This 84-nucleotide RNA sequence from Macaca fascicularis belongs to the Rfam family "mir-548 microRNA precursor family". On this family, see Jima et al., Blood 2010: "Deep sequencing of the small RNA transcriptome of normal and malignant human B cells identifies hundreds of novel microRNAs".

[Rfam]
RNA sequence: CAUUAGGUUAGUGCAAAAGUAAUUGCAGUUCUUGCCAUUAGAAGUAAUGGCAAGAACUGCAAUUACUUUUGCACCAACCUAAUA
Dot-bracket structure: .((((((((.((((((((((((((((((((((((((((((....)))))))))))))))))))))))))))))).)))))))).